[Rfam]
Background: A member of the RNA family "MIR845_2 microRNA precursor family" from Vitis vinifera, 131 nucleotides long. Rfam 15.1 lists 180 matches to the family in 2 species. Pairs were carried over by alignment from the consensus structure, which was predicted with WAR. Rfam links the family to the GO terms RISC complex and miRNA-mediated post-transcriptional gene silencing.

RNA sequence: AUAGUGCACAUUAAUUAUCCCUGAGGCCAUGGGAUAAACAAAAACCUUGAAAAACCAAGUUAGCAUACCCUAGAAUGGUUCUAUCAUGAUUACUAACCUAUGGAUCUGAUACUAAUUGAUGGAAAAAACCU
Numbered sequence: 001a002u003a004g005u006g007c008a009c010a011u012u013a014a015u016u017a018u019c020c021c022u023g024a025g026g027c028c029a030u031g032g033g034a035u036a037a038a039c040a041a042a043a044a045c046c047u048u049g050a051a052a053a054a055c056c057a058a059g060u061u062a063g064c065a066u067a068c069c070c071u072a073g074a075a076u077g078g079u080u081c082u083a084u085c086a087u088g089a090u091u092a093c094u095a096a097c098c099u100a101u102g103g104a105u106c107u108g109a110u111a112c113u114a115a116u117u118g119a120u121g122g123a124a125a126a127a128a129c130c131u
Stems, first nucleotide, its partner, number of pairs: 009121008022108002025105001027103007048086002053080002056077002060073004